[Rfam]
RNA sequence: UUAAGGCGAUGAAAUGAAAGGUUGUUGGCACACCCGGCCCCUUUGCCAUGGCGGGUUGUCAAGGAAUUUUCAUGGAGUAUGUCUAUUAAAAAAUGGGCGA
Numbered sequence: 001u002u003a004a005g006g007c008g009a010u011g012a013a014a015u016g017a018a019a020g021g022u023u024g025u026u027g028g029c030a031c032a033c034c035c036g037g038c039c040c041c042u043u044u045g046c047c048a049u050g051g052c053g054g055g056u057u058g059u060c061a062a063g064g065a066a067u068u069u070u071c072a073u074g075g076a077g078u079a080u081g082u083c084u085a086u087u088a089a090a091a092a093a094u095g096g097g098c099g100a
Base pairs, nucleotide, nucleotide: 014073015072016071018070019069020068021067025062026061027060028059029058080099081098082097083096086093
A member of the RNA family "S10-Clostridia ribosomal protein leader" from Oceanobacillus limi, 100 nucleotides long. Rfam classes the family as a cis-regulatory leader. NCBI's taxonomy places the organism under Bacteria, Bacillati, Bacillota, Bacilli, Oceanobacillus.